mir-46/mir-47/mir-281 microRNA precursor family: an 82-nucleotide RNA from Branchiostoma belcheri. The source organism's lineage runs through Eukaryota, Bilateria, Cephalochordata, Branchiostomatidae and Branchiostoma. A reference for the family is Lau et al. (2001), "An abundant class of tiny RNAs with probable regulatory roles in Caenorhabditis elegans", Science. Its family is annotated with miRNA-mediated post-transcriptional gene silencing and RISC complex in the Gene Ontology.

RNA sequence: CGCCUCUGUGCGGAAGGGAGAGCCUUUCCGUGACUGUCGAACUUCGGGAACACUGUCAUGGAGUUGCUCUCUUUUCCGCGCG
Numbered sequence: 001c002g003c004c005u006c007u008g009u010g011c012g013g014a015a016g017g018g019a020g021a022g023c024c025u026u027u028c029c030g031u032g033a034c035u036g037u038c039g040a041a042c043u044u045c046g047g048g049a050a051c052a053c054u055g056u057c058a059u060g061g062a063g064u065u066g067c068u069c070u071c072u073u074u075u076c077c078g079c080g081c082g
Stems, first nucleotide, its partner, number of pairs: 014074003018071002021068003026062003032057003036053002